[Rfam]
Rfam assigns this 78-nucleotide sequence from Brevibacillus panacihumi to the family "c-di-GMP-I riboswitch aptamer". Rfam's curators write: GEMM was predicted in a large-scale screen for bacterial structured RNA regulatory elements. Genes associated with GEMM are involved in a diverse array of functions, including chemotaxis regulation, signal transduction, secretion and chitin.
RNA sequence: UGUCGAAUUAUGUAGAAUGAAAACUUCGCAAAGCUACAGGUCUAAGGUUCCAUGAACUAAGAUGGCUGAGUUACCAAG
Numbered sequence: 001u002g003u004c005g006a007a008u009u010a011u012g013u014a015g016a017a018u019g020a021a022a023a024c025u026u027c028g029c030a031a032a033g034c035u036a037c038a039g040g041u042c043u044a045a046g047g048u049u050c051c052a053u054g055a056a057c058u059a060a061g062a063u064g065g066c067u068g069a070g071u072u073a074c075c076a077a078g
Base pairs, nucleotide, nucleotide: 001022003020004019032072033071034070035069037068038067039066040063041062042061047057048056049055050054
The match comes from Rfam's covariance-model search (42 bits).